Nucleotides: 086
Base pairs, nucleotide, nucleotide: 002083003082004081005080009076010075011074012073013072014071017068018067019066020065021064025059026058032053034051035050036049037048
Number, partner (000 for none) and nucleotide at each position: 001000u002083u003082g004081a005080a006000u007000a008000a009076u010075u011074u012073g013072a014071a015000g016000a017068c018067u019066u020065c021064a022000a023000c024000u025059u026058g027000c028000a029000g030000a031000c032053u033000u034051g035050a036049a037048g038000a039000a040000u041000u042000u043000a044000a045000a046000g047000a048037c049036u050035u051034c052000c053032a054000c055000u056000a057000c058026c059025a060000u061000a062000c063000u064021u065020g066019g067018a068017g069000a070000u071014u072013u073012u074011g075010a076009a077000g078000a079000c080005u081004u082003c083002a084000u085000c086000u
Rfam assigns this 86-nucleotide RNA sequence from Solanum tuberosum to the family "MIR8024 microRNA precursor family".
Its family is annotated with RISC complex and miRNA-mediated post-transcriptional gene silencing in the Gene Ontology.
A search with the family's covariance model found it, with a score of 67 bits.
Pairs were carried over by alignment from the consensus structure, which was predicted with RNAalifold.
The family has 2 seed sequences and 661 matches in Rfam 15.1.